[Rfam]
RNA sequence: AAAAAUCUUACCAUUAUAUAUUAUUAGAUUUACAAUUUAUGUUCAAGCAGGACAUAGCGGUUAGGCACUAAACCGUGUAGCGCCAAAAAUGGUGGUACUAUGAAUUGUUGCAGGGGGAGAGUCGCCCCAGAAAUAACAGGCUUGGCGGUACUCUGAAUACAGGGGUGCUUUAUUGACGCUAUAAGACAAUAAAGGUAAGUUUGUUGCGUCUAUUGUGGGGCAGAGUUCACAAGAACAAGCGAUAUAGCUUGAAAUAAAGCAAGU
Numbered sequence: 001a002a003a004a005a006u007c008u009u010a011c012c013a014u015u016a017u018a019u020a021u022u023a024u025u026a027g028a029u030u031u032a033c034a035a036u037u038u039a040u041g042u043u044c045a046a047g048c049a050g051g052a053c054a055u056a057g058c059g060g061u062u063a064g065g066c067a068c069u070a071a072a073c074c075g076u077g078u079a080g081c082g083c084c085a086a087a088a089a090u091g092g093u094g095g096u097a098c099u100a101u102g103a104a105u106u107g108u109u110g111c112a113g114g115g116g117g118a119g120a121g122u123c124g125c126c127c128c129a130g131a132a133a134u135a136a137c138a139g140g141c142u143u144g145g146c147g148g149u150a151c152u153c154u155g156a157a158u159a160c161a162g163g164g165g166u167g168c169u170u171u172a173u174u175g176a177c178g179c180u181a182u183a184a185g186a187c188a189a190u191a192a193a194g195g196u197a198a199g200u201u202u203g204u205u206g207c208g209u210c211u212a213u214u215g216u217g218g219g220g221c222a223g224a225g226u227u228c229a230c231a232a233g234a235a236c237a238a239g240c241g242a243u244a245u246a247g248c249u250u251g252a253a254a255u256a257a258a259g260c261a262a263g264u
Stems, first nucleotide, its partner, number of pairs: 007199006038056007058075005077098003081094005113128004119143005150226006166261009175210005185205005213232005236251005
A member of the RNA family "ARRPOF RNA", 264 nucleotides long. The sequence is in the family's curated seed alignment. Pairs were carried over by alignment from the consensus structure, which is taken from published work.